This 64-nucleotide RNA from Colocasia esculenta belongs to the Rfam family "Small nucleolar RNA U49".
Clan: SNORD49 clan.
The family has 5 seed sequences and 340 matches in Rfam 15.1.
It scores 57 bits against the family's covariance model.
A reference for the family is Brown et al. (2001), "Multiple snoRNA gene clusters from Arabidopsis", RNA.
RNA sequence: UCCCAGUGAGGAAGAAAGCCCUUUGAUAGGAAGUGCCGUAUGACACUCAAAGAGCAGCUGCCUU
Number, nucleotide and partner (000 for none) at each position: 001u000002c000003c000004c000005a000006g000007u000008g000009a000010g000011g000012a000013a000014g058015a000016a000017a000018g000019c000020c000021c000022u000023u000024u000025g000026a000027u000028a000029g000030g048031a000032a047033g046034u045035g044036c000037c000038g000039u000040a000041u000042g000043a000044c035045a034046c033047u032048c030049a000050a000051a000052g000053a000054g000055c000056a000057g000058c014059u000060g000061c000062c000063u000064u000